Rfam assigns this 89-nucleotide RNA from Pristionchus pacificus to the family "mir-2238 microRNA precursor family". The match comes from Rfam's covariance-model search (70 bits). Taxonomically the source falls in Pristionchus (Eukaryota, Opisthokonta, Eumetazoa, Nematoda). The family's consensus secondary structure was predicted with RNAalifold. For this family Rfam cites "Repertoire and evolution of miRNA genes in four divergent nematode species" (de Wit et al., Genome Res, 2009).
RNA sequence: CUUGUCAAUCCUCUUUCCCGUCCACUCUUCCUGUCAAUGGUUUGAUUUGAAUGACCAAUGGCGGAUUAGUGGAUGUGAAGGAAGACUAG
Dot-bracket structure: ((.(((..((((...((.(((.((((.((.(.((((.((((............)))).)))))))..)))).))).)))))).))).))